[Rfam]
RNA sequence: ACACGUCGAAAGGAGGUGAUCCGAAAACAUGGUUUCUUUUCGGACUCGUGAGGUGACUGCGGGCUAAGGCCUGCUGUCGCACAUCGUGCAUCUCGGCAGGCUGUCUGCCGACAACAACGCAGUCACCCGACCCGUGGGCCGCCGGUAAGUCCGGCCGGCUCUCGUCCGAACUCGAGCGGACGGGACCAAGGCCCACGGGUCGUCCGCG
Numbered sequence: 001a002c003a004c005g006u007c008g009a010a011a012g013g014a015g016g017u018g019a020u021c022c023g024a025a026a027a028c029a030u031g032g033u034u035u036c037u038u039u040u041c042g043g044a045c046u047c048g049u050g051a052g053g054u055g056a057c058u059g060c061g062g063g064c065u066a067a068g069g070c071c072u073g074c075u076g077u078c079g080c081a082c083a084u085c086g087u088g089c090a091u092c093u094c095g096g097c098a099g100g101c102u103g104u105c106u107g108c109c110g111a112c113a114a115c116a117a118c119g120c121a122g123u124c125a126c127c128c129g130a131c132c133c134g135u136g137g138g139c140c141g142c143c144g145g146u147a148a149g150u151c152c153g154g155c156c157g158g159c160u161c162u163c164g165u166c167c168g169a170a171c172u173c174g175a176g177c178g179g180a181c182g183g184g185a186c187c188a189a190g191g192c193c194c195a196c197g198g199g200u201c202g203u204c205c206g207c208g
Base pairs, nucleotide, nucleotide: 016060017059018058020056062109063108064107067104069101070100071099072098074096075095076094128202129201130200131199132198133197134196135195136194137193138192139191140190141159142158143157144156145155146154
Rfam assigns this 208-nucleotide sequence from Streptomyces sp. QHH-9511 to the family "Actinobacteria sRNA Ms_IGR-5". The organism belongs to Streptomyces, within Bacteria.